The record is a 180-nucleotide RNA from Amazona aestiva, which matches "TUC338" in Rfam. Pairs were carried over by alignment from the consensus structure, which was predicted with WAR. Lineage of the source: Eukaryota > Dipnotetrapodomorpha > Tetrapoda > Aves > Amazona. Rfam 15.1 lists 75,615 matches to the family in 527 species.
RNA sequence: UUGACACCACUGGAGGCUGAAGCCCUCUAUUUACCCACAGAGCAGAUACAGCAUGGGCGGCAGCCAUGCAAGUUUCCCCACGCUGCCCCCACCAAUGUGCCUCAUCUCUGUCCUGGAGGGACCACCUCUAGAGGUGAGAGGAUAGUUCAGUCACCAUGACCCAUCCAAUCCUUGGCCUUU
Dot-bracket structure: .((.......(((.(((((((...(.((.((((((..(((.(.....(..(((((.......((....................)).........))))).)...).)))..(((((((.....))))))).)))))))))....))))))).))).........)).............
Numbered sequence: 001u002u003g004a005c006a007c008c009a010c011u012g013g014a015g016g017c018u019g020a021a022g023c024c025c026u027c028u029a030u031u032u033a034c035c036c037a038c039a040g041a042g043c044a045g046a047u048a049c050a051g052c053a054u055g056g057g058c059g060g061c062a063g064c065c066a067u068g069c070a071a072g073u074u075u076c077c078c079c080a081c082g083c084u085g086c087c088c089c090c091a092c093c094a095a096u097g098u099g100c101c102u103c104a105u106c107u108c109u110g111u112c113c114u115g116g117a118g119g120g121a122c123c124a125c126c127u128c129u130a131g132a133g134g135u136g137a138g139a140g141g142a143u144a145g146u147u148c149a150g151u152c153a154c155c156a157u158g159a160c161c162c163a164u165c166c167a168a169u170c171c172u173u174g175g176c177c178u179u180u
Stems, first nucleotide, its partner, number of pairs: 002167002011156003015152007025141001027140002030138006038110003042106001048102001051100005063086002113131007